small nucleolar RNA snoR135: a 143-nucleotide RNA from Papaver somniferum. The source organism's lineage runs through Eukaryota, Viridiplantae, Embryophyta, Tracheophyta and Papaver. Rfam 15.1 lists 837 matches to the family in 220 species. Rfam classes the family as an H/ACA-box small nucleolar RNA. On this family, see Chen and Wu, Nucleic Acids Res 2009: "Mining small RNA sequencing data: a new approach to identify small nucleolar RNAs in Arabidopsis". A search with the family's covariance model found it, with a score of 100 bits.
[Rfam]
RNA sequence: UAUGCAGAGAUAUGUGUGUAUCGGAGUUGUGCUUUAAAUGCAUUUAUCCGAAAGAAUUAUCUGUAAAACUGAUUUUUGGUGAAAGUGGGCAGUUGAGUUUCAUAUAUUCUAUUGAUUUAUCAACAAUCAUUUUCUCCACAUUU
Numbered sequence: 001u002a003u004g005c006a007g008a009g010a011u012a013u014g015u016g017u018g019u020a021u022c023g024g025a026g027u028u029g030u031g032c033u034u035u036a037a038a039u040g041c042a043u044u045u046a047u048c049c050g051a052a053a054g055a056a057u058u059a060u061c062u063g064u065a066a067a068a069c070u071g072a073u074u075u076u077u078g079g080u081g082a083a084a085g086u087g088g089g090c091a092g093u094u095g096a097g098u099u100u101c102a103u104a105u106a107u108u109c110u111a112u113u114g115a116u117u118u119a120u121c122a123a124c125a126a127u128c129a130u131u132u133u134c135u136c137c138a139c140a141u142u143u
Stems, first nucleotide, its partner, number of pairs: 004064005010058001016043006078137002081134008092124004
Dot-bracket structure: ...(((((.(.....((((((................))))))..............).))))).............((.((((((((...((((.........................))))..)))))))).))......